[Rfam]
RNA sequence: GUUCUUACUAUGUGCUGUUAAGUGUCGGUUAACUUUAACCGGAUAUUGUAAGAACGG
Dot-bracket structure: ((((((((.((.(.(.((((((.((......)))))))).).).)).))))))))..

The family of this 57-nucleotide RNA sequence from Acyrthosiphon pisum is "mir-3015 microRNA precursor family".
The base pairs follow the family's consensus structure, which was predicted with RNAalifold.
The family has 4 seed sequences and 82 matches in Rfam 15.1.
Rfam links the family to the GO terms miRNA-mediated post-transcriptional gene silencing and RISC complex.
Lineage of the source: Eukaryota > Metazoa > Bilateria > Aphidomorpha > Acyrthosiphon.